Shown here is a 139-nucleotide sequence from Neogale vison, a member of the family "Small nucleolar RNA U109".
[Rfam]
RNA sequence: UUUUAUGUGGAAAUGUCUCCUCCUUAUUCCUUUAUGAACAGAAAUGUAUUCAUUACAUGCUACAUUUUAAAAGGAGUUCUCAGAGUUGCCAGUCUUAAGGUAGAGGUUGAGUAGUGGCCUGCCUAUUUCUGCUGCAUAA
Numbered sequence: 001u002u003u004u005a006u007g008u009g010g011a012a013a014u015g016u017c018u019c020c021u022c023c024u025u026a027u028u029c030c031u032u033u034a035u036g037a038a039c040a041g042a043a044a045u046g047u048a049u050u051c052a053u054u055a056c057a058u059g060c061u062a063c064a065u066u067u068u069a070a071a072a073g074g075a076g077u078u079c080u081c082a083g084a085g086u087u088g089c090c091a092g093u094c095u096u097a098a099g100g101u102a103g104a105g106g107u108u109g110a111g112u113a114g115u116g117g118c119c120u121g122c123c124u125a126u127u128u129c130u131g132c133u134g135c136a137u138a139a
Base pairs, nucleotide, nucleotide: 004059005058006057007056008055016042017041018040021037022036073132075130076129085115086114089111090109091108092107093106094105095104096103
Source information:
A search with the family's covariance model found it, with a score of 82 bits. It is annotated as an H/ACA-box small nucleolar RNA. The source organism's lineage runs through Eukaryota, Opisthokonta, Sarcopterygii, Eutheria and Neogale. The base pairs follow the family's consensus structure, which was predicted with WAR. Its family is annotated with nucleolus and RNA processing in the Gene Ontology.